[Rfam]
RNA sequence: UUAAAAAAAACCCCGCAGGCAUCCUGCGGGGUCCUUCUGAACCAAAAAAAGCACGCUUUUUUUGGGCAGAAGGCAAAGGGAGAGGAGAAACCGGAGGAAGAACUUAUGGGGAAACGUAAGUCUUCUCCGCGG
Numbered sequence: 001u002u003a004a005a006a007a008a009a010a011c012c013c014c015g016c017a018g019g020c021a022u023c024c025u026g027c028g029g030g031g032u033c034c035u036u037c038u039g040a041a042c043c044a045a046a047a048a049a050a051g052c053a054c055g056c057u058u059u060u061u062u063u064g065g066g067c068a069g070a071a072g073g074c075a076a077a078g079g080g081a082g083a084g085g086a087g088a089a090a091c092c093g094g095a096g097g098a099a100g101a102a103c104u105u106a107u108g109g110g111g112a113a114a115c116g117u118a119a120g121u122c123u124u125c126u127c128c129g130c131g132g
Base pairs, nucleotide, nucleotide: 011031012030013029014028015027016026017025018024019023032080033079034078035077036076042065043064044063045062046061047060048059049058050057051056092129093128094127095126097125098124099123100122102121103120104119105118106117
Dot-bracket structure: ..........(((((((((...)))))))))(((((.....((((((((((....))))))))))..........)))))...........((((.((((.(((((..........)))))))))))))...